About this RNA: This 66-nucleotide RNA sequence from Cylindrospermum sp. NIES-4074 belongs to the Rfam family "Nitrogen stress-induced RNA 4". Rfam classes the family as a small RNA.

[Rfam]
Nucleotides: 066
Base pairs, nucleotide, nucleotide: 003015004014005013041066043064044063045062046061047060048059
Number, partner (000 for none) and nucleotide at each position: 001000u002000u003015a004014g005013c006000a007000u008000a009000g010000u011000a012000a013005g014004c015003u016000a017000a018000a019000a020000c021000u022000a023000c024000c025000c026000u027000c028000c029000g030000a031000u032000u033000a034000c035000u036000u037000a038000a039000c040000c041066a042000c043064a044063c045062c046061g047060c048059c049000c050000u051000c052000a053000u054000u055000u056000a057000g058000u059048g060047g061046c062045g063044g064043u065000u066041u

About the family: Former name SyR12, is a cyanobacterial non-coding RNA which plays role in the regulation of Glutamine synthetase (GS), a key enzyme in biological nitrogen assimilation. NsiR4 interacts with the 5'UTR of the mRNA of the GS inactivating factor IF7 (gifA mRNA) and reduces its expression. NsiR4 expression is under positive control of the nitrogen control transcription factor (NtcA). NsR4 is a first example of an sRNA controlling the assimilation of a micronutrient.
Lineage of the source: Bacteria > Bacillati > Cyanophyceae > Nostocales > Cylindrospermum.